[Rfam]
RNA: U1 spliceosomal RNA
Organism: Enterobius vermicularis
RNA sequence: AAACUUACCUGGCUGGGAGGCUUCUCGCGAUCAUGAAGGCGGGACCUCCAUGGUGAGGCUUGGCCAUUGCACUUUCGGCUAGGCUGACCUGUGUGGCAUUCCCGAGUUGGGAUUGGCCAACAGCAUAAUUUUUGCGUUUGGGGGAGCGUUCGCGCUUCCCUGC
Dot-bracket structure: ...........(((((((((...(((((..........))))).)))))((((.(.(((.(((((...........))))).)))..))))).((((((.((......)).)).).))).))))................((((((((....)))).))))..